[Rfam]
RNA sequence: AGAUUGGUAGCUGUAAGGAAGUGCUUCGCGCACGGGCUGCAACUAUCA
Numbered sequence: 001a002g003a004u005u006g007g008u009a010g011c012u013g014u015a016a017g018g019a020a021g022u023g024c025u026u027c028g029c030g031c032a033c034g035g036g037c038u039g040c041a042a043c044u045a046u047c048a
Base pairs, nucleotide, nucleotide: 008039009038010037011036012035021033022032023031024030